[Rfam]
RNA sequence: CCGUGCUAGGUGGGGAGGUAGCGGUGCCUUGUAACUCGCAAUCCGCUAUAGCGGGGCUGAAUCCCUUCUAGAGGUUUUGGUGCUGCGAGGUCUGCCCUAAGUAAGUGGUGUUGACGCUUGGGUUCCACGCAACGGAAACCCAUGAACCCUGUCAGGUCCGGAAGGAAGCAGCAGUAAGUGGAUCCUUCCGUGUGCCGUGGAGUCGCCUGGGCCGAGCUAACUGCUUAGGUAACGCUCGUGGUACCUUAAUCGAAGGAAGGUGCGCGG
Numbered sequence: 001c002c003g004u005g006c007u008a009g010g011u012g013g014g015g016a017g018g019u020a021g022c023g024g025u026g027c028c029u030u031g032u033a034a035c036u037c038g039c040a041a042u043c044c045g046c047u048a049u050a051g052c053g054g055g056g057c058u059g060a061a062u063c064c065c066u067u068c069u070a071g072a073g074g075u076u077u078u079g080g081u082g083c084u085g086c087g088a089g090g091u092c093u094g095c096c097c098u099a100a101g102u103a104a105g106u107g108g109u110g111u112u113g114a115c116g117c118u119u120g121g122g123u124u125c126c127a128c129g130c131a132a133c134g135g136a137a138a139c140c141c142a143u144g145a146a147c148c149c150u151g152u153c154a155g156g157u158c159c160g161g162a163a164g165g166a167a168g169c170a171g172c173a174g175u176a177a178g179u180g181g182a183u184c185c186u187u188c189c190g191u192g193u194g195c196c197g198u199g200g201a202g203u204c205g206c207c208u209g210g211g212c213c214g215a216g217c218u219a220a221c222u223g224c225u226u227a228g229g230u231a232a233c234g235c236u237c238g239u240g241g242u243a244c245c246u247u248a249a250u251c252g253a254a255g256g257a258a259g260g261u262g263c264g265c266g267g
Stems, first nucleotide, its partner, number of pairs: 001267006009058003012030004017025001019023001035055005064260006073251004080244010093231002097228006105221002107218003116212008124201006130192002133190005138183001140181004149174004157166003
A member of the RNA family "Bacterial large signal recognition particle RNA" from Halalkalibacter hemicellulosilyticus, 267 nucleotides long. The family's consensus secondary structure is taken from published work. The organism belongs to Halalkalibacter hemicellulosilyticus, within Bacteria. Its family is annotated with signal recognition particle, plasma membrane targeting and SRP-dependent cotranslational protein targeting to membrane, signal sequence recognition in the Gene Ontology. By type it is a non-coding RNA gene.